The family of this 90-nucleotide RNA from Papaver somniferum is "Small nucleolar RNA Z159/U59". The family's consensus secondary structure was predicted with PFOLD. Its Rfam clan is "SNORD59 clan". It is annotated as a C/D-box small nucleolar RNA. On this family, see Chen et al., Nucleic Acids Res 2003: "The high diversity of snoRNAs in plants: identification and comparative study of 120 snoRNA genes from Oryza sativa". Its family is annotated with nucleolus and RNA processing in the Gene Ontology.

RNA sequence: GCCUUUGAUGAUGACCGAAACAAACUUUUGUGCUUCCAAGGUUUAUUAAUAAUCUACGCGGAAAAUAAUGGAGAUCUGAACUGAGGAGUC
Numbered sequence: 001g002c003c004u005u006u007g008a009u010g011a012u013g014a015c016c017g018a019a020a021c022a023a024a025c026u027u028u029u030g031u032g033c034u035u036c037c038a039a040g041g042u043u044u045a046u047u048a049a050u051a052a053u054c055u056a057c058g059c060g061g062a063a064a065a066u067a068a069u070g071g072a073g074a075u076c077u078g079a080a081c082u083g084a085g086g087a088g089u090c
Stems, first nucleotide, its partner, number of pairs: 003088004